The family of this 97-nucleotide RNA sequence is "PhotoRC-II RNA".
[Rfam]
RNA sequence: GAACAUAUAUUCUGCUCCCCUUCAACCAAGACCUAUAGGGAGGAUAAAUUACGUCUUCAUAUCCAGUAGUGAGGGAUUACUGGAAAUAAGUUUCGCA
Numbered sequence: 001g002a003a004c005a006u007a008u009a010u011u012c013u014g015c016u017c018c019c020c021u022u023c024a025a026c027c028a029a030g031a032c033c034u035a036u037a038g039g040g041a042g043g044a045u046a047a048a049u050u051a052c053g054u055c056u057u058c059a060u061a062u063c064c065a066g067u068a069g070u071g072a073g074g075g076a077u078u079a080c081u082g083g084a085a086a087u088a089a090g091u092u093u094c095g096c097a
Stems, first nucleotide, its partner, number of pairs: 015042005021037001029056004062084007
Dot-bracket structure: ..............(((((.(.......[[[[....))))))..........]]]].....(((((((.........))))))).............
Overview
The family's consensus secondary structure is taken from published work. It is one of the family's seed sequences.